RNA sequence: ACCGCCACGGAUGGCGGUGGUUCCAUACAGGAGUGAGUUUUUGCUUUGCAAAAACUCAUCGUUGAGCGGUUGUACACGGACGUGCAACUGCUCAACAGCG
Numbered sequence: 001a002c003c004g005c006c007a008c009g010g011a012u013g014g015c016g017g018u019g020g021u022u023c024c025a026u027a028c029a030g031g032a033g034u035g036a037g038u039u040u041u042u043g044c045u046u047u048g049c050a051a052a053a054a055c056u057c058a059u060c061g062u063u064g065a066g067c068g069g070u071u072g073u074a075c076a077c078g079g080a081c082g083u084g085c086a087a088c089u090g091c092u093c094a095a096c097a098g099c100g
Stems, first nucleotide, its partner, number of pairs: 001018006034058011061096009071086005
RNA: TD-2 RNA
Organism: Treponema vincentii